[Rfam]
RNA sequence: UGAUCCCGUGCGGGAGAGUUCCUGGUCGCCAGCCAGGAACGCCGAAGGAGCAACUCCUCCCCGAAAACCUCUCAGGCACAUGGACCGCGCGGGUCAG
Numbered sequence: 001u002g003a004u005c006c007c008g009u010g011c012g013g014g015a016g017a018g019u020u021c022c023u024g025g026u027c028g029c030c031a032g033c034c035a036g037g038a039a040c041g042c043c044g045a046a047g048g049a050g051c052a053a054c055u056c057c058u059c060c061c062c063g064a065a066a067a068c069c070u071c072u073c074a075g076g077c078a079c080a081u082g083g084a085c086c087g088c089g090c091g092g093g094u095c096a097g
Stems, first nucleotide, its partner, number of pairs: 006092008019039006041077003044073002048071003055063001